[Rfam]
RNA: Bacterial RNase P class A
Organism: Nocardioides luti
RNA sequence: UGGGCUGGCCGGGCGACCGCGUCGCCGUACCCCCGGGUGCGGUGCCGAGGAAGGUCCGGGCUCCACAGAGCGAGGUGGUGGGUAACCCCCACCCGGGGCAACCCGCGGGACAGUGCCACAGAGAACAGACCGCCGCCCGGCUCCGGCCGGGAGGUAAGGGUGAAACGGUGGAGUAAGAGCCCACCAGCGAUCCGGGUGACCGGAUCGGCUCGGCAAACCCCACCUGGAGCAAGGUCAAGAAGUCCGGCGCCUUCGGGCAUCGGACGCGCGCACGUCCGAGGGCUGCUCGCCCGAGUGCGCGGGUAGACCGCUGGAGGCUGUCGGCAACGGCAGUCGUAGAUGGAUGGUCGCCCCCCGGCUCGCCGGGGACAGAACCCGGCCUACAGGCCAGCCCAUUCG
Numbered sequence: 001u002g003g004g005c006u007g008g009c010c011g012g013g014c015g016a017c018c019g020c021g022u023c024g025c026c027g028u029a030c031c032c033c034c035g036g037g038u039g040c041g042g043u044g045c046c047g048a049g050g051a052a053g054g055u056c057c058g059g060g061c062u063c064c065a066c067a068g069a070g071c072g073a074g075g076u077g078g079u080g081g082g083u084a085a086c087c088c089c090c091a092c093c094c095g096g097g098g099c100a101a102c103c104c105g106c107g108g109g110a111c112a113g114u115g116c117c118a119c120a121g122a123g124a125a126c127a128g129a130c131c132g133c134c135g136c137c138c139g140g141c142u143c144c145g146g147c148c149g150g151g152a153g154g155u156a157a158g159g160g161u162g163a164a165a166c167g168g169u170g171g172a173g174u175a176a177g178a179g180c181c182c183a184c185c186a187g188c189g190a191u192c193c194g195g196g197u198g199a200c201c202g203g204a205u206c207g208g209c210u211c212g213g214c215a216a217a218c219c220c221c222a223c224c225u226g227g228a229g230c231a232a233g234g235u236c237a238a239g240a241a242g243u244c245c246g247g248c249g250c251c252u253u254c255g256g257g258c259a260u261c262g263g264a265c266g267c268g269c270g271c272a273c274g275u276c277c278g279a280g281g282g283c284u285g286c287u288c289g290c291c292c293g294a295g296u297g298c299g300c301g302g303g304u305a306g307a308c309c310g311c312u313g314g315a316g317g318c319u320g321u322c323g324g325c326a327a328c329g330g331c332a333g334u335c336g337u338a339g340a341u342g343g344a345u346g347g348u349c350g351c352c353c354c355c356c357g358g359c360u361c362g363c364c365g366g367g368g369a370c371a372g373a374a375c376c377c378g379g380c381c382u383a384c385a386g387g388c389c390a391g392c393c394c395a396u397u398c399g
Stems, first nucleotide, its partner, number of pairs: 001395010011384001012352007020047002023044008052382003056379005061229004068288004073225005078092005093107001094105004108220002113218002115214003130159002132155003136151006167185005187209001188207008233309004268300006280292004316335008